[Rfam]
RNA sequence: CUGGUGGAUCCGCAGAGUCCGCGCGGGGAAUUCAGCCCGGCAGGCGGGGCCGCGCGCCGGCCGAGAUUCGUCUCGGACCUGGCUGGCGCGCAGGCACUCGCAGGCAGGGUGCACUUUCCCCGGCUAGCGGAAGGCCACGACCGGUUCGGUGGCGGUCAGGAGCCCGGAGGGGAGGUAGCCGUGAUCGGUAUCCGAUCGCGGAACGUACAGCCCUCCGAGGUGGACUCGCCGCUGGACCGAGGAUGCCGCGGUGGCCUCACGCCGCGGGCCGUCCGGGAGCGUUCGACUUUGGCCACGCUGCUCGCAGCGGGUCGAGACCGCGCGCCUGGUACGGGCUCGCGAUCGUGGGUCGCCUAGGGUCAGUGGCGAAUCGGUCGGCAACCCACCAGACCCGUCUUGAAACACGG
Numbered sequence: 001c002u003g004g005u006g007g008a009u010c011c012g013c014a015g016a017g018u019c020c021g022c023g024c025g026g027g028g029a030a031u032u033c034a035g036c037c038c039g040g041c042a043g044g045c046g047g048g049g050c051c052g053c054g055c056g057c058c059g060g061c062c063g064a065g066a067u068u069c070g071u072c073u074c075g076g077a078c079c080u081g082g083c084u085g086g087c088g089c090g091c092a093g094g095c096a097c098u099c100g101c102a103g104g105c106a107g108g109g110u111g112c113a114c115u116u117u118c119c120c121c122g123g124c125u126a127g128c129g130g131a132a133g134g135c136c137a138c139g140a141c142c143g144g145u146u147c148g149g150u151g152g153c154g155g156u157c158a159g160g161a162g163c164c165c166g167g168a169g170g171g172g173a174g175g176u177a178g179c180c181g182u183g184a185u186c187g188g189u190a191u192c193c194g195a196u197c198g199c200g201g202a203a204c205g206u207a208c209a210g211c212c213c214u215c216c217g218a219g220g221u222g223g224a225c226u227c228g229c230c231g232c233u234g235g236a237c238c239g240a241g242g243a244u245g246c247c248g249c250g251g252u253g254g255c256c257u258c259a260c261g262c263c264g265c266g267g268g269c270c271g272u273c274c275g276g277g278a279g280c281g282u283u284c285g286a287c288u289u290u291g292g293c294c295a296c297g298c299u300g301c302u303c304g305c306a307g308c309g310g311g312u313c314g315a316g317a318c319c320g321c322g323c324g325c326c327u328g329g330u331a332c333g334g335g336c337u338c339g340c341g342a343u344c345g346u347g348g349g350u351c352g353c354c355u356a357g358g359g360u361c362a363g364u365g366g367c368g369a370a371u372c373g374g375u376c377g378g379c380a381a382c383c384c385a386c387c388a389g390a391c392c393c394g395u396c397u398u399g400a401a402a403c404a405c406g407g
Stems, first nucleotide, its partner, number of pairs: 001389007010378003017091001020090005026084001098366004392407004
RNA: Eukaryotic large subunit ribosomal RNA, nucleotides 429 to 835